The record is an 83-nucleotide sequence from Monodelphis domestica, which matches "Small nucleolar RNA SNORD103/SNORD85" in Rfam.
[Rfam]
RNA sequence: ACUGGCUGGGAUGACACACUUGCCCUCACUGAGACAACUCAUUGAUGAGAGCUCUUGAUUGUACUCAUUGGUUCUGAGCCUGU
Numbered sequence: 001a002c003u004g005g006c007u008g009g010g011a012u013g014a015c016a017c018a019c020u021u022g023c024c025c026u027c028a029c030u031g032a033g034a035c036a037a038c039u040c041a042u043u044g045a046u047g048a049g050a051g052c053u054c055u056u057g058a059u060u061g062u063a064c065u066c067a068u069u070g071g072u073u074c075u076g077a078g079c080c081u082g083u
Stems, first nucleotide, its partner, number of pairs: 001083002004080003

For this family Rfam cites "Identification of 13 novel human modification guide RNAs" (Vitali et al., Nucleic Acids Res, 2003). Gene Ontology terms of the family: RNA processing and nucleolus. The family has 41 seed sequences and 1,349 matches in Rfam 15.1.